[Rfam]
RNA sequence: UCCUUCUUGUAAAAGCACCGUGCUGAAAUUGUGAGACUCAAGCCUCUUUGGUUUGGCUCUUGUGAUAAUGCCAGCAUGGGUACAUCCAAGAAGGGAGAGCAAGUGCACAGCAUUGGAAUGAGACUAGGAUGGACCUCUUUCUUAAUGUCCAGUGUCCUCUGUCUUAAGAUUCUGUGCAACACUU
Numbered sequence: 001u002c003c004u005u006c007u008u009g010u011a012a013a014a015g016c017a018c019c020g021u022g023c024u025g026a027a028a029u030u031g032u033g034a035g036a037c038u039c040a041a042g043c044c045u046c047u048u049u050g051g052u053u054u055g056g057c058u059c060u061u062g063u064g065a066u067a068a069u070g071c072c073a074g075c076a077u078g079g080g081u082a083c084a085u086c087c088a089a090g091a092a093g094g095g096a097g098a099g100c101a102a103g104u105g106c107a108c109a110g111c112a113u114u115g116g117a118a119u120g121a122g123a124c125u126a127g128g129a130u131g132g133a134c135c136u137c138u139u140u141c142u143u144a145a146u147g148u149c150c151a152g153u154g155u156c157c158u159c160u161g162u163c164u165u166a167a168g169a170u171u172c173u174g175u176g177c178a179a180c181a182c183u184u
Stems, first nucleotide, its partner, number of pairs: 018080002021076005028069004034060002038056007104178007112170001126155001128153001130151004
Dot-bracket structure: .................((.(((((..((((..((..(((((((.....)))))))..)).....))))..)))))..)).......................(((((((.(.............(.(.((((..............)))).).)..............).)))))))......
This 184-nucleotide sequence from Atractosteus spatula belongs to the Rfam family "Small nucleolar RNA SNORA81". The match comes from Rfam's covariance-model search (141 bits). It is annotated as an H/ACA-box small nucleolar RNA.